[Rfam]
Shown here is a 58-nucleotide RNA sequence from Pusillimonas sp. ANT_WB101, a member of the family "nhaA-I RNA". Lineage of the source: Bacteria > Pseudomonadati > Pseudomonadota > Alcaligenaceae > Pusillimonas. A search with the family's covariance model found it, with a score of 45 bits. Acidobacteria, Alphaproteobacteria, Betaproteobacteria and Gammaproteobacteria, Verrucomicrobia, cand. division NC10.
RNA sequence: GGGUGUUAGGGCUGCAUGUUGCGGCUCGGCAGGUUAAAGCGUAGGUCGGGCCGCCGCG
Numbered sequence: 001g002g003g004u005g006u007u008a009g010g011g012c013u014g015c016a017u018g019u020u021g022c023g024g025c026u027c028g029g030c031a032g033g034u035u036a037a038a039g040c041g042u043a044g045g046u047c048g049g050g051c052c053g054c055c056g057c058g
Base pairs, nucleotide, nucleotide: 005030006029007028009027010026011025012024013023014022040058041057042056044055045054046053